The family of this 105-nucleotide sequence from Vitis vinifera is "MIR162_1 microRNA precursor family". Taxonomically the source falls in Vitis (Eukaryota, Magnoliopsida, Vitales, Vitaceae). Gene Ontology terms of the family: RISC complex and miRNA-mediated post-transcriptional gene silencing. It scores 104 bits against the family's covariance model. The literature on the family includes a 2002 paper in Genes Dev by Reinhart et al., "MicroRNAs in plants".
[Rfam]
RNA sequence: UUUGAAGUCACUGGAUGCAGCGGUUCAUCGAUCUCUUCCUGAAAUUGUUGUGAAAAAAGCAGAUCAAGAAUCGGUCGAUAAACCUCUGCAUCCAGCGUUCACUCC
Numbered sequence: 001u002u003u004g005a006a007g008u009c010a011c012u013g014g015a016u017g018c019a020g021c022g023g024u025u026c027a028u029c030g031a032u033c034u035c036u037u038c039c040u041g042a043a044a045u046u047g048u049u050g051u052g053a054a055a056a057a058a059g060c061a062g063a064u065c066a067a068g069a070a071u072c073g074g075u076c077g078a079u080a081a082a083c084c085u086c087u088g089c090a091u092c093c094a095g096c097g098u099u100c101a102c103u104c105c
Base pairs, nucleotide, nucleotide: 013093014092015091018088019087020086022084023083024082025081027079028078029077030076031075032074033073036070037069038068